[Rfam]
RNA: Nitrogen stress-induced RNA 1
Nucleotides: 062
Stems, first nucleotide, its partner, number of pairs: 002013003027054009037044001
Number, partner (000 for none) and nucleotide at each position: 001000u002013g003012g004011u005000a006000g007000a008000u009000g010000c011004g012003c013002c014000c015000u016000g017000a018000u019000a020000a021000c022000u023000u024000a025000c026000u027054u028053c029052c030051c031050c032049a033048g034047c035046c036000a037044g038000a039000u040000u041000a042000a043000a044037u045000a046035g047034g048033c049032u050031g051030g052029g053028g054027g055000u056000u057000u058000u059000c060000u061000u062000c